Rfam assigns this 86-nucleotide RNA sequence from Kingella denitrificans to the family "sRNA-Xcc1". NCBI's taxonomy places the organism under Bacteria, Pseudomonadota, Neisseriales, Neisseriaceae, Kingella denitrificans. The literature on the family includes a 2011 paper in RNA Biol by Chen et al., "sRNA-Xcc1, an integron-encoded transposon- and plasmid-transferred trans-acting sRNA, is under the positive control of the key virulence regulators HrpG and HrpX of Xanthomonas campestris pathovar campestris".
[Rfam]
Nucleotides: 086
Base pairs, nucleotide, nucleotide: 001078002077003076004075005074006073007072013047014046015045016044018042019041028037029036030035049064050063051062052061053060
Number, partner (000 for none) and nucleotide at each position: 001078g002077g003076c004075g005074g006073g007072u008000c009000g010000a011000g012000a013047g014046a015045g016044c017000c018042u019041a020000a021000u022000a023000c024000a025000a026000u027000a028037c029036c030035c031000g032000c033000a034000a035030g036029g037028g038000g039000a040000a041019u042018a043000c044016g045015u046014u047013c048000c049064g050063c051062c052061g053060u054000c055000u056000a057000g058000a059000u060053g061052c062051g063050g064049u065000a066000g067000u068000u069000g070000a071000a072007g073006c074005c075004c076003g077002c078001c079000c080000a081000c082000c083000c084000a085000a086000a

Description:
Pairs were carried over by alignment from the consensus structure, which was predicted with RNAalifold. By type it is a small RNA. The family has 74 seed sequences and 421 matches in Rfam 15.1.